RNA sequence: ACAAUCCAGCCCAUGUAAAGGUUAGUCGCCGGCAUGGAAUAGACCUACACGGUUGAGGAGGCAACGAGUCAGUCGAAGCUGUAGGAAUAGCAGCUCGUCAGCCACAACGGAAGUGAAGGCUAUAAGCCCCGAAAUUUUCCAUUGUUGCGCAGGGCCAAGGGUUUCAUCUCCUGGAAGCCAGUAUCGUGUAGCCCGUGAAAGGCGAGGGUUGCACGGCGUGCCGGGGUCUCAGGCCG
Numbered sequence: 001a002c003a004a005u006c007c008a009g010c011c012c013a014u015g016u017a018a019a020g021g022u023u024a025g026u027c028g029c030c031g032g033c034a035u036g037g038a039a040u041a042g043a044c045c046u047a048c049a050c051g052g053u054u055g056a057g058g059a060g061g062c063a064a065c066g067a068g069u070c071a072g073u074c075g076a077a078g079c080u081g082u083a084g085g086a087a088u089a090g091c092a093g094c095u096c097g098u099c100a101g102c103c104a105c106a107a108c109g110g111a112a113g114u115g116a117a118g119g120c121u122a123u124a125a126g127c128c129c130c131g132a133a134a135u136u137u138u139c140c141a142u143u144g145u146u147g148c149g150c151a152g153g154g155c156c157a158a159g160g161g162u163u164u165c166a167u168c169u170c171c172u173g174g175a176a177g178c179c180a181g182u183a184u185c186g187u188g189u190a191g192c193c194c195g196u197g198a199a200a201g202g203c204g205a206g207g208g209u210u211g212c213a214c215g216g217c218g219u220g221c222c223g224g225g226g227u228c229u230c231a232g233g234c235c236g
Base pairs, nucleotide, nucleotide: 012036013035014034015033016032020030021029022028023205025203026202039088040087044085045084046083047082050075051074052073053072054071055070056069060065126227127226128225129224130223131222147221148220149219150218152217153179154178155177159172160171161170184216185215186214187213188212189211190210191209192208193207194206
RNA: Group II catalytic intron D1-D4-6
Organism: Pontiella sulfatireligans